Source information:
Shown here is a 187-nucleotide RNA from Bacillus sp. NRRL B-14911, a member of the family "6S / SsrS RNA". E. coli 6S RNA was the first non coding RNA to be sequenced, but its function was unknown until recently.
RNA sequence: AGAGUCCUAAUGUGUUCGUUGUUUCACCUGACAUUUUGACCUAACAUUAUUCCUUCGGGAGCCCGGAUUUCCUUGCGGCGUAAACGCCUCUGGCUAGGGGACUUACAAAAGCGGGAAUAGGGCACCCACCUGCUGAGUGCGGGUUCAAAACGAAGGCAUCCAAGGCGACGGCACAAUUGGGACUCUU
Numbered sequence: 001a002g003a004g005u006c007c008u009a010a011u012g013u014g015u016u017c018g019u020u021g022u023u024u025c026a027c028c029u030g031a032c033a034u035u036u037u038g039a040c041c042u043a044a045c046a047u048u049a050u051u052c053c054u055u056c057g058g059g060a061g062c063c064c065g066g067a068u069u070u071c072c073u074u075g076c077g078g079c080g081u082a083a084a085c086g087c088c089u090c091u092g093g094c095u096a097g098g099g100g101a102c103u104u105a106c107a108a109a110a111g112c113g114g115g116a117a118u119a120g121g122g123c124a125c126c127c128a129c130c131u132g133c134u135g136a137g138u139g140c141g142g143g144u145u146c147a148a149a150a151c152g153a154a155g156g157c158a159u160c161c162a163a164g165g166c167g168a169c170g171g172c173a174c175a176a177u178u179g180g181g182a183c184u185c186u187u
Base pairs, nucleotide, nucleotide: 002185003184004183005182006181007180008179009178010177011176012174013173014172015171017170018169019168032152034150035149037147038146039145040143041142057127058126059125061123062122063121064120066118068117070116071115072114073113075112076111082104083103087100088099089098090097
The organism belongs to Bacillus, within Bacteria. Rfam's curators put it in the seed alignment. By type it is a non-coding RNA gene. The family's consensus secondary structure is taken from published work.